RNA sequence: AACGUAGUGAUAUAGCCCACUUAUAUAUCGUCAUGAUAAGGAUGACAGUUUCUAGCCAGCACCGUAAAUGCUGGACUAUAAGUGAAAGAGUGUCUUGC
Numbered sequence: 001a002a003c004g005u006a007g008u009g010a011u012a013u014a015g016c017c018c019a020c021u022u023a024u025a026u027a028u029c030g031u032c033a034u035g036a037u038a039a040g041g042a043u044g045a046c047a048g049u050u051u052c053u054a055g056c057c058a059g060c061a062c063c064g065u066a067a068a069u070g071c072u073g074g075a076c077u078a079u080a081a082g083u084g085a086a087a088g089a090g091u092g093u094c095u096u097g098c
Stems, first nucleotide, its partner, number of pairs: 018084008030046005056074006